[Rfam]
Overview: mir-7 microRNA precursor family: a 92-nucleotide sequence from Xenopus tropicalis. Its family is annotated with miRNA-mediated post-transcriptional gene silencing and RISC complex in the Gene Ontology. A search with the family's covariance model found it, with a score of 66 bits. On this family, see Lagos-Quintana et al., Science 2001: "Identification of novel genes coding for small expressed RNAs". From the family's description: This family represents the microRNA (miRNA) precursor mir-7. The organism belongs to Silurana, within Eukaryota.
RNA sequence: UUUCUGGGUCGGUUUGGAAGACUAGUGAUUUUGUUGUUUUUAUAAAAGUUUGUCACAAACAGCAAAUCGUAGUCUCCACUCUGCCCCAGGAG
Numbered sequence: 001u002u003u004c005u006g007g008g009u010c011g012g013u014u015u016g017g018a019a020g021a022c023u024a025g026u027g028a029u030u031u032u033g034u035u036g037u038u039u040u041u042a043u044a045a046a047a048g049u050u051u052g053u054c055a056c057a058a059a060c061a062g063c064a065a066a067u068c069g070u071a072g073u074c075u076c077c078a079c080u081c082u083g084c085c086c087c088a089g090g091a092g
Stems, first nucleotide, its partner, number of pairs: 002091007010083003015078003019075005025070007033063006